[Rfam]
RNA: mir-399 microRNA precursor family
RNA sequence: AAAUGAAUUACAGGGCAAGAUCUCUAUUGGCAGUUUUUCACUAUGCAUGAUAUAUGAUUAUGCAUGCAUCUCACCCAUGCAUGAAAUAAUUCAUUUUAGUGUGUAAACCUGCCAAAGGAGAUUUGCCCAGCGAUUCUCAU
Numbered sequence: 001a002a003a004u005g006a007a008u009u010a011c012a013g014g015g016c017a018a019g020a021u022c023u024c025u026a027u028u029g030g031c032a033g034u035u036u037u038u039c040a041c042u043a044u045g046c047a048u049g050a051u052a053u054a055u056g057a058u059u060a061u062g063c064a065u066g067c068a069u070c071u072c073a074c075c076c077a078u079g080c081a082u083g084a085a086a087u088a089a090u091u092c093a094u095u096u097u098a099g100u101g102u103g104u105a106a107a108c109c110u111g112c113c114a115a116a117g118g119a120g121a122u123u124u125g126c127c128c129a130g131c132g133a134u135u136c137u138c139a140u
Stems, first nucleotide, its partner, number of pairs: 005136005011130001013128007022120004028114006035107002